Rfam assigns this 80-nucleotide RNA sequence from Araneus ventricosus to the family "mir-184 microRNA precursor family". A reference for the family is Chen et al. (2005), "The developmental miRNA profiles of zebrafish as determined by small RNA cloning", Genes Dev. A search with the family's covariance model found it, with a score of 63 bits. The organism belongs to Araneus, within Eukaryota.
[Rfam]
RNA sequence: GUUUCCACGUUUCCUUAUCAUUCGACUGUCCAGACUGUAUCUGAGCACUGGACGGAGAACUGAUAAGGGCUUGUGGCAAC
Numbered sequence: 001g002u003u004u005c006c007a008c009g010u011u012u013c014c015u016u017a018u019c020a021u022u023c024g025a026c027u028g029u030c031c032a033g034a035c036u037g038u039a040u041c042u043g044a045g046c047a048c049u050g051g052a053c054g055g056a057g058a059a060c061u062g063a064u065a066a067g068g069g070c071u072u073g074u075g076g077c078a079a080c
Stems, first nucleotide, its partner, number of pairs: 012069009021059003026055002030051002